[Rfam]
Source information: Rfam assigns this 156-nucleotide RNA from Desulfonema magnum to the family "FMN riboswitch aptamer (RFN element)". The organism belongs to Desulfonema, within Bacteria.

RNA sequence: AUAAAUUCUCAGGGCGGGGUGAAAUUCCCCACCGGCGGUGAUUUUGCUAUCAUGCAGAAAAGCCCGCGAGCGCCUGUUUCUUUAAAAAAAACAGGGUCAGCAGAUCCGGUGCGAAUCCGGGGCCGACGGUUACAGUCCGGAUGGGAGAGAAUCGUU
Numbered sequence: 001a002u003a004a005a006u007u008c009u010c011a012g013g014g015c016g017g018g019g020u021g022a023a024a025u026u027c028c029c030c031a032c033c034g035g036c037g038g039u040g041a042u043u044u045u046g047c048u049a050u051c052a053u054g055c056a057g058a059a060a061a062g063c064c065c066g067c068g069a070g071c072g073c074c075u076g077u078u079u080c081u082u083u084a085a086a087a088a089a090a091a092c093a094g095g096g097u098c099a100g101c102a103g104a105u106c107c108g109g110u111g112c113g114a115a116u117c118c119g120g121g122g123c124c125g126a127c128g129g130u131u132a133c134a135g136u137c138c139g140g141a142u143g144g145g146a147g148a149g150a151a152u153c154g155u156u
Stems, first nucleotide, its partner, number of pairs: 005152006017029003031136002033125002035067004062123002070101002105121005127139003